[Rfam]
RNA: mraW RNA
Organism: Haloactinopolyspora alba
RNA sequence: GCAUGUGCGUACGGCGAGGUCUCCGGCCGCUCAUGGCUGGUUGGCGCACCUUCCCCGGUGCCAAGCAGCCGGAGCUGGCAAGCCCGAGCGGGCGGGGACCUGGUCGUACGGACAGCACCGA
Numbered sequence: 001g002c003a004u005g006u007g008c009g010u011a012c013g014g015c016g017a018g019g020u021c022u023c024c025g026g027c028c029g030c031u032c033a034u035g036g037c038u039g040g041u042u043g044g045c046g047c048a049c050c051u052u053c054c055c056c057g058g059u060g061c062c063a064a065g066c067a068g069c070c071g072g073a074g075c076u077g078g079c080a081a082g083c084c085c086g087a088g089c090g091g092g093c094g095g096g097g098a099c100c101u102g103g104u105c106g107u108a109c110g111g112a113c114a115g116c117a118c119c120g121a
Stems, first nucleotide, its partner, number of pairs: 010108006018100002021097005027091006035070005041064007